This 108-nucleotide RNA sequence from Falsiroseomonas stagni belongs to the Rfam family "SAM-I/IV (S-adenosyl methionine) riboswitch aptamer". The family's consensus secondary structure is taken from published work. A search with the family's covariance model found it, with a score of 54 bits. For this family Rfam cites "The aptamer core of SAM-IV riboswitches mimics the ligand-binding site of SAM-I riboswitches" (Weinberg et al., RNA, 2008).
RNA sequence: CCCCAGCAUCAGGAGUUGGGCCGACGCCCAACGCCAACCUGCCUUCCCGGGCAAGGUGGCGCCCCCGCAAGGGGGGAUGCGGCCUCACCGGCAACCAAUCGGGCAGCG
Numbered sequence: 001c002c003c004c005a006g007c008a009u010c011a012g013g014a015g016u017u018g019g020g021c022c023g024a025c026g027c028c029c030a031a032c033g034c035c036a037a038c039c040u041g042c043c044u045u046c047c048c049g050g051g052c053a054a055g056g057u058g059g060c061g062c063c064c065c066c067g068c069a070a071g072g073g074g075g076g077a078u079g080c081g082g083c084c085u086c087a088c089c090g091g092c093a094a095c096c097a098a099u100c101g102g103g104c105a106g107c108g
Stems, first nucleotide, its partner, number of pairs: 006080005015032001017030005033060003038056003041052003046103004082092003

Annotation: Lineage of the source: Bacteria > Alphaproteobacteria > Roseomonadaceae > Falsiroseomonas > Falsiroseomonas stagni.